[Rfam]
Nucleotides: 145
Base pairs, nucleotide, nucleotide: 008093009092010091011090012089013024014023015022016021025064026063027062029060032059033058034057035056036055037054038053065088066087067086068085069084070083071082111143113142114141116140117139118138119137120136123133124132125131
Number, partner (000 for none) and nucleotide at each position: 001000a002000a003000a004000a005000a006000g007000g008093g009092c010091a011090g012089g013024c014023c015022u016021u017000a018000g019000u020000u021016a022015a023014g024013g025064c026063g027062u028000c029060a030000a031000u032059g033058g034057a035056c036055g037054g038053u039000c040000a041000g042000g043000u044000u045000c046000a047000u048000u049000c050000g051000c052000u053038g054037c055036c056035g057034u058033c059032c060029u061000u062027g063026c064025g065088g066087u067086g068085a069084a070083u071082c072000g073000c074000g075000a076000u077000c078000a079000g080000g081000a082071g083070a084069u085068u086067u087066g088065c089012c090011c091010u092009g093008c094000a095000u096000a097000a098000u099000u100000u101000c102000u103000g104000a105000g106000a107000a108000g109000c110000c111143g112000c113142g114141u115000u116140g117139g118138a119137a120136u121000g122000g123133g124132c125131u126000c127000g128000a129000g130000a131125g132124g133123c134000c135000a136120a137119u138118u139117c140116c141114a142113c143111c144000g145000g

The family of this 145-nucleotide RNA sequence from Hyaloperonospora arabidopsidis is "U11 spliceosomal RNA". Rfam classes the family as a spliceosomal small nuclear RNA.